[Rfam]
About this RNA: Shown here is a 75-nucleotide sequence from Methylobacterium terrae, a member of the family "Makes More Granules Regulator RNA (mmgR)". Pairs were carried over by alignment from the consensus structure. SuhB later renamed mmgR (makes more granules regulator) was a putative non-coding RNA found multiple times in the Agrobacterium tumefaciens genome and related alpha-proteobacteria.
RNA sequence: UGCUCGCGCCCUCCUCGGGCGUUUCCUCCCUAGACUCGGGCCGCCUUCUUCAGGGCGGCCCUUUUUUCGUCCAGG
Numbered sequence: 001u002g003c004u005c006g007c008g009c010c011c012u013c014c015u016c017g018g019g020c021g022u023u024u025c026c027u028c029c030c031u032a033g034a035c036u037c038g039g040g041c042c043g044c045c046u047u048c049u050u051c052a053g054g055g056c057g058g059c060c061c062u063u064u065u066u067u068c069g070u071c072c073a074g075g
Stems, first nucleotide, its partner, number of pairs: 008020004039060009

Clan: suhB sRNA clan. It scores 64 bits against the family's covariance model. The family's RNA type in Rfam is small RNA.